[Rfam]
RNA sequence: AAGAAGAAGCCGUGAAACUCAGGAUAGAUAGCGCCAAAGAUCACAGUUAUAAUAUGAUGAUGAUGAAGAUCAUAAUUAUAAUUCCUGGCGCUAUCCCUCCUGAGCUUUACAGAUUCUUCUA
Numbered sequence: 001a002a003g004a005a006g007a008a009g010c011c012g013u014g015a016a017a018c019u020c021a022g023g024a025u026a027g028a029u030a031g032c033g034c035c036a037a038a039g040a041u042c043a044c045a046g047u048u049a050u051a052a053u054a055u056g057a058u059g060a061u062g063a064u065g066a067a068g069a070u071c072a073u074a075a076u077u078a079u080a081a082u083u084c085c086u087g088g089c090g091c092u093a094u095c096c097c098u099c100c101u102g103a104g105c106u107u108u109a110c111a112g113a114u115u116c117u118u119c120u121a
Base pairs, nucleotide, nucleotide: 010112016106018104019103020102021101022100023099024098027095028094029093030092031091032090033089034088035087
Record summary: MIR390 microRNA precursor family: a 121-nucleotide RNA sequence from Quercus lobata. The source organism's lineage runs through Eukaryota, Euphyllophyta, eudicotyledons, Gunneridae and Quercus.